Shown here is a 74-nucleotide RNA from Alligator mississippiensis, a member of the family "Mammalian CPEB3 ribozyme". The family has 14 seed sequences and 5,706 matches in Rfam 15.1. The source organism's lineage runs through Eukaryota, Bilateria, Deuterostomia, Euteleostomi and Alligator. It scores 36 bits against the family's covariance model.
[Rfam]
RNA sequence: UGAGAGUUCAAAGCUAUAGCAGAAUUGUUUACAGCAUGGCUAUGUCCAAUUCCAAUGAAUCUGUGAAUUCUGCU
Numbered sequence: 001u002g003a004g005a006g007u008u009c010a011a012a013g014c015u016a017u018a019g020c021a022g023a024a025u026u027g028u029u030u031a032c033a034g035c036a037u038g039g040c041u042a043u044g045u046c047c048a049a050u051u052c053c054a055a056u057g058a059a060u061c062u063g064u065g066a067a068u069u070c071u072g073c074u
Base pairs, nucleotide, nucleotide: 012041013040014039015038018074019073020072021071022070023069024068026036027035046063049060050059051058052057